This 64-nucleotide RNA sequence from Astyanax mexicanus belongs to the Rfam family "Selenocysteine insertion sequence 1". A search with the family's covariance model found it, with a score of 41 bits. The literature on the family includes a 1996 paper in RNA by Walczak et al., "A novel RNA structural motif in the selenocysteine insertion element of eukaryotic selenoprotein mRNAs".
[Rfam]
RNA sequence: UUGGCUUUCAUGAAGGCCGGUGCAUAAACUACGUUCUAGUGGCGCCUGUUGGAUUUCCAGCCAA
Numbered sequence: 001u002u003g004g005c006u007u008u009c010a011u012g013a014a015g016g017c018c019g020g021u022g023c024a025u026a027a028a029c030u031a032c033g034u035u036c037u038a039g040u041g042g043c044g045c046c047u048g049u050u051g052g053a054u055u056u057c058c059a060g061c062c063a064a
Stems, first nucleotide, its partner, number of pairs: 001064005015050003019046005029039003
The organism belongs to Astyanax, within Eukaryota. By type it is a cis-regulatory element.